[Rfam]
RNA sequence: UGAAAGUAUUUUACGAUUAAGAAGCAACUGCCUCUUGUACAGAUUAUACAUUAAUCU
Numbered sequence: 001u002g003a004a005a006g007u008a009u010u011u012u013a014c015g016a017u018u019a020a021g022a023a024g025c026a027a028c029u030g031c032c033u034c035u036u037g038u039a040c041a042g043a044u045u046a047u048a049c050a051u052u053a054a055u056c057u
Stems, first nucleotide, its partner, number of pairs: 018037005024031002
RNA: Plastid-rps18 3UTR RNA
Organism: Archidendron lucyi